This 356-nucleotide RNA sequence from Ileibacterium valens belongs to the Rfam family "Bacterial RNase P class B". Rfam describes the family as follows. Ribonuclease P (RNase P) is a ubiquitous endoribonuclease, found in archaea, bacteria and eukarya as well as chloroplasts and mitochondria. Its best characterised activity is the generation of mature 5'-ends of tRNAs by cleaving the 5'-leader elements of precursor-tRNAs.
[Rfam]
RNA sequence: UUUAAUGAAGCAGUUGCUGGCAGUCAUGCGCUGUCAGAGGAAAGUCCAUGCUCGCACAAUCUGAGAUGAUUGUAGUGUUUGUGCCAGUCCAAUCAAUAAGGCUGGGGUACCUUCGGGUAUACGGCUGUCCGAAAGCCUAAAGAGAAAUCCAUGGCUGACGGCUUUAAAAGUGCCACAGAGACGAAGCUUCAUUGGAAACAAUGAAGGUGGAACGGGUAAACCCCUCAAGCGAGAAACCCAAAUUUGGUAGGGGAACUGAAUGAAGCAAAAUGAAGCGGAUUUCGGAUGGAUUCAGCUGAAUCCAUAGAUAAAUAACUGCUGCCUGCACUAGCAGGAACAAAACAUGGCUUAUGAUU
Dot-bracket structure: ...(((.((((((((.((((((.........))))))....[[[.[[[[[(((((((((((......)))))).....(((.(((((((..........))))))((((((....))))).)((..(((....((((....((....))...))))...))).......(((((............((((((((....))))))))........)))..))))).))))))))...(((..........)))...(((((....................)))))((((((((....))))))))........))))))).(((((....))))).......]]]]]]]].).)))
It scores 285 bits against the family's covariance model.